[Rfam]
RNA sequence: CCUGCUGUACGACCAGCAGUUGCCGAACGUGCGCGACUGGUAACAGUCGGGUUCGAAGCUUCGGGGACAACGCACCCGCCUUAUUGGAGAUUCCCACGGGCGACCGGAAGGGAUCGACACUGCCAGCAGCCGUGCGGUGUGGGGG
Numbered sequence: 001c002c003u004g005c006u007g008u009a010c011g012a013c014c015a016g017c018a019g020u021u022g023c024c025g026a027a028c029g030u031g032c033g034c035g036a037c038u039g040g041u042a043a044c045a046g047u048c049g050g051g052u053u054c055g056a057a058g059c060u061u062c063g064g065g066g067a068c069a070a071c072g073c074a075c076c077c078g079c080c081u082u083a084u085u086g087g088a089g090a091u092u093c094c095c096a097c098g099g100g101c102g103a104c105c106g107g108a109a110g111g112g113a114u115c116g117a118c119a120c121u122g123c124c125a126g127c128a129g130c131c132g133u134g135c136g137g138u139g140u141g142g143g144g145g
Base pairs, nucleotide, nucleotide: 002019003018004017005016006015007014023064024063025062026061027060028055029054031052032051034049035048036047037046038045039044079087080086089115090114091113092112098105099104119138120137121136122135123134